Shown here is a 349-nucleotide part of an RNA from Chironomus tentans, a member of the family "Eukaryotic large subunit ribosomal RNA".
[Rfam]
RNA sequence: CCUAAAGAACCCAAAUAUCUAAACGGAGAAAUUCAAUACUACCGGUUAAACGCGUAGUGUGCACUUUUCUCUUAGUAAGACGCCGUGAUCCAUUAGAAAUUGAUACAUACAAAAUGUAUAUUGGGUCAUCAAUAGGCCAGUAUGAAGUUUAUUGGAACAAAUGGCAUGAUCUUAUACGGUCGUGUGUAUUGUCUGGUAAGCAUAUUGUGUCCUGUAAUGACUGUCUGAUGGAUUUUAAAGAUGAUAUCAAUGAUGUUACGGCAUCACUUAUCAUUGAUAAGAGUACGAUAUCUAUCUGAUCAACGGUGGUUAAAUUUGGGAUACCUUUUGGACCCGUCUUGAAACACGG
Dot-bracket structure: ((.((((.(.((....(..(.((.((..........................................)).)).))....((((((........................................................................................................................................................................................................................))))))..........)).)..)))).))..((((........))))

Background:
Rfam's curators put it in the seed alignment. NCBI's taxonomy places the organism under Eukaryota, Metazoa, Allotriocarida, Diptera, Camptochironomus.